[Rfam]
RNA sequence: ACUCCUGUUAACCGGCAAUUAAACAUUGUCCGGUAACCUCAUGUUAUUCAGAUUUUUCUGAAUUUUGCAGAGUGGUUUCUCCCUCUGUUUGACGCCUCCCUGUUGACUUCGAGAGCGGUUUCGACCGCUCUUUUUUU
Numbered sequence: 001a002c003u004c005c006u007g008u009u010a011a012c013c014g015g016c017a018a019u020u021a022a023a024c025a026u027u028g029u030c031c032g033g034u035a036a037c038c039u040c041a042u043g044u045u046a047u048u049c050a051g052a053u054u055u056u057u058c059u060g061a062a063u064u065u066u067g068c069a070g071a072g073u074g075g076u077u078u079c080u081c082c083c084u085c086u087g088u089u090u091g092a093c094g095c096c097u098c099c100c101u102g103u104u105g106a107c108u109u110c111g112a113g114a115g116c117g118g119u120u121u122c123g124a125c126c127g128c129u130c131u132u133u134u135u136u137u
Base pairs, nucleotide, nucleotide: 001044002043005014015038020036022034024032048061049060050059051058070085071084072083074082075081091104092103093102094101111132112131113130114129115128116127117126118125119124

Shown here is a 137-nucleotide RNA from Devosia epidermidihirudinis, a member of the family "Alphaproteobacterial sRNA BjrC1505".
The base pairs follow the family's consensus structure.
A search with the family's covariance model found it, with a score of 52 bits.
For this family Rfam cites "Small RNAs of the Bradyrhizobium/Rhodopseudomonas lineage and their analysis" (Madhugiri et al., RNA Biol, 2012).